[Rfam]
RNA sequence: ACCCGAAAUAUCUUACUCAUUCGUAUAACCUCGCGAUCAGGGCGAGGGUUUCUACGGGAAGCCUUAACUUCCUUGCUACGGAUAUCGGAUCUGUUGUC
Number, nucleotide and partner (000 for none) at each position: 001a000002c000003c000004c000005g000006a000007a000008a000009u000010a000011u000012c000013u000014u000015a000016c000017u000018c000019a083020u082021u081022c080023g079024u078025a077026u000027a000028a000029c047030c046031u045032c044033g043034c042035g000036a000037u000038c000039a000040g000041g000042g034043c033044g032045a031046g030047g029048g000049u000050u000051u000052c000053u000054a000055c000056g073057g072058g071059a070060a069061g068062c000063c000064u000065u000066a000067a000068c061069u060070u059071c058072c057073u056074u000075g000076c000077u025078a024079c023080g022081g021082a020083u019084a000085u000086c000087g000088g000089a000090u000091c000092u000093g000094u000095u000096g000097u000098c000
Source information
A member of the RNA family "Purine riboswitch aptamer" from Cohnella terricola, 98 nucleotides long. Gene Ontology term of the family: purine nucleobase biosynthetic process. The organism belongs to Cohnella, within Bacteria.